This 84-nucleotide sequence from Lottiidibacillus patelloidae belongs to the Rfam family "ZMP/ZTP riboswitch aptamer (pfl RNA motif)".
The source organism's lineage runs through Bacteria, Bacillota, Bacilli, Bacillaceae and Lottiidibacillus.
The base pairs follow the family's consensus structure, which is taken from published work.
Rfam 15.1 lists 3,295 matches to the family in 2,545 species.
It scores 60 bits against the family's covariance model.
RNA sequence: AAUAAGCGUAGUGACUGACGACAAGAUGGAAUAAACCAUAAGGGAGCUACGCUCUAAUUUUAGCCGGUCGUCUGGGCAGAGAUA
Number, nucleotide and partner (000 for none) at each position: 001a000002a000003u000004a000005a053006g052007c051008g050009u049010a048011g047012u046013g000014a000015c043016u042017g072018a071019c070020g069021a068022c000023a000024a000025g000026a039027u038028g037029g036030a000031a000032u000033a000034a000035a000036c029037c028038a027039u026040a000041a000042g016043g015044g000045a000046g012047c011048u010049a009050c008051g007052c006053u005054c000055u000056a000057a000058u000059u000060u000061u079062a000063g077064c076065c075066g000067g000068u021069c020070g019071u018072c017073u000074g000075g065076g064077c063078a000079g061080a000081g000082a000083u000084a000